[Rfam]
About this RNA
Shown here is a 162-nucleotide RNA from Paenibacillus sp. 598K, a member of the family "c-di-AMP riboswitch aptamer (ydaO/yuaA leader)". The match comes from Rfam's covariance-model search (68 bits).
Nucleotides: 162
Base pairs, nucleotide, nucleotide: 012146013145014144018034019033020032021031022030023029035142036141037140038139039138040137053127054126055125061105062104063103064102065101066100067099068098108121109120111118
Number, partner (000 for none) and nucleotide at each position: 001000u002000a003000c004000a005000u006000a007000a008000g009000a010000a011000c012146g013145c014144c015000g016000a017000a018034u019033u020032c021031c022030u023029g024000a025000g026000c027000u028000u029023c030022a031021g032020g033019a034018a035142a036141c037140g038139g039138g040137g041000g042000a043000a044000c045000c046000a047000u048000u049000a050000u051000c052000c053127g054126g055125g056000u057000g058000a059000a060000u061105u062104g063103c064102u065101u066100c067099u068098c069000g070000g071000u072000c073000c074000g075000c076000u077000u078000g079000u080000c081000u082000g083000g084000c085000g086000c087000a088000a089000g090000c091000g092000u093000a094000u095000c096000c097000g098068g099067a100066g101065g102064a103063g104062c105061a106000u107000a108121g109120g110000g111118a112000g113000c114000c115000u116000u117000c118111u119000a120109c121108c122000g123000a124000a125055c126054c127053c128000c129000u130000c131000a132000g133000c134000u135000a136000a137040c138039c139038u140037c141036g142035u143000a144014g145013g146012c147000a148000g149000c150000g151000g152000a153000a154000g155000g156000a157000g158000c159000u160000u161000u162000u